The family of this 282-nucleotide RNA sequence from Suricata suricatta is "HIF-1 alpha IRES".

RNA sequence: CUCUUCUGAGGGGACGCGAGGAAAGGCCUCGCCGCCGCUUCGUCCAGUGAGUGGGGCCCUGACAAGCUGCCCGAGAGGAGGCUCUUCCGAGCCGGACCCGGACCCUUGUGAUUGCCGCCUGCUCCUCCGCCUCCGGUUUUACGAGGGGUUUCCCGCCUUGCACCUCCCACCUCUGGACGUGCCUCCCCUUCUCUCCUCGCGUGUGGAGGGAGCCAGCGCUUAGGCCGGAGCGAGCCUGGGGGCGACCGGCCGUGAAGGCUUCGCGGGGACCGAUUCGCCAUG
Numbered sequence: 001c002u003c004u005u006c007u008g009a010g011g012g013g014a015c016g017c018g019a020g021g022a023a024a025g026g027c028c029u030c031g032c033c034g035c036c037g038c039u040u041c042g043u044c045c046a047g048u049g050a051g052u053g054g055g056g057c058c059c060u061g062a063c064a065a066g067c068u069g070c071c072c073g074a075g076a077g078g079a080g081g082c083u084c085u086u087c088c089g090a091g092c093c094g095g096a097c098c099c100g101g102a103c104c105c106u107u108g109u110g111a112u113u114g115c116c117g118c119c120u121g122c123u124c125c126u127c128c129g130c131c132u133c134c135g136g137u138u139u140u141a142c143g144a145g146g147g148g149u150u151u152c153c154c155g156c157c158u159u160g161c162a163c164c165u166c167c168c169a170c171c172u173c174u175g176g177a178c179g180u181g182c183c184u185c186c187c188c189u190u191c192u193c194u195c196c197u198c199g200c201g202u203g204u205g206g207a208g209g210g211a212g213c214c215a216g217c218g219c220u221u222a223g224g225c226c227g228g229a230g231c232g233a234g235c236c237u238g239g240g241g242g243c244g245a246c247c248g249g250c251c252g253u254g255a256a257g258g259c260u261u262c263g264c265g266g267g268g269a270c271c272g273a274u275u276c277g278c279c280a281u282g
Base pairs, nucleotide, nucleotide: 001013002012003011016032017031018030019029020028021027034057035056036055078151079150080149082148125147126146127145180215181214183212184211185210186209192207193206194205226249228247230246

Taxonomically the source falls in Suricata (Eukaryota, Euteleostomi, Sarcopterygii, Laurasiatheria). The family's RNA type in Rfam is internal ribosome entry site. Rfam describes the family as follows. This family represents the hypoxia-inducible factor 1-alpha internal ribosome entry site. HIF-1a is a subunit of the HIF-1 transcription factor, which induces transcription of several genes involved in the cellular response to hypoxia. The HIF-1a IRES allows translation to be maintained under hypoxic cell conditions that inhibit cap-dependent translation.